[Rfam]
RNA sequence: UGUAUGGCUUGAAAGGAACAUUUGUAUUUUGUAUUUAUUCGCAAGAAUAUUUUUGAAAUACGCGUUCUAGAGUUAUACAUUCCGUCUAGAAACACGG
Numbered sequence: 001u002g003u004a005u006g007g008c009u010u011g012a013a014a015g016g017a018a019c020a021u022u023u024g025u026a027u028u029u030u031g032u033a034u035u036u037a038u039u040c041g042c043a044a045g046a047a048u049a050u051u052u053u054u055g056a057a058a059u060a061c062g063c064g065u066u067c068u069a070g071a072g073u074u075a076u077a078c079a080u081u082c083c084g085u086c087u088a089g090a091a092a093c094a095c096g097g
Base pairs, nucleotide, nucleotide: 001079002078003077004076005075006074007073008072009071010070015068016067021064023062024061025060026059027058036049037048038047039046040045082097083096084095085094
RNA: Archaeal large subunit ribosomal RNA, nucleotides 578 to 674
Organism: uncultured marine crenarchaeote AD1000-325-A12